[Rfam]
The family of this 53-nucleotide RNA is "Exoribonuclease-resistant RNA (xrRNA) plant-infecting virus (class 3)".
Rfam's curators write: Exoribonuclease-resistant RNA (xrRNA) plant-infecting virus (class 3) is a ncRNA that was reported in Plant viruses.
Its family is annotated with viral RNA genome replication in the Gene Ontology.
The family's consensus secondary structure is taken from published work.
RNA sequence: CAAAACCAGCCGAGCAUACGUAAGUUGCAAGCGUCGGAGGUUUAGUCUUGCAC
Number, nucleotide and partner (000 for none) at each position: 001c000002a042003a041004a000005a000006c000007c000008a000009g000010c037011c036012g000013a000014g032015c031016a000017u000018a000019c000020g051021u050022a049023a048024g047025u000026u000027g000028c000029a000030a000031g015032c014033g000034u000035c000036g011037g010038a000039g000040g000041u003042u002043u000044a000045g000046u000047c024048u023049u022050g021051c020052a000053c000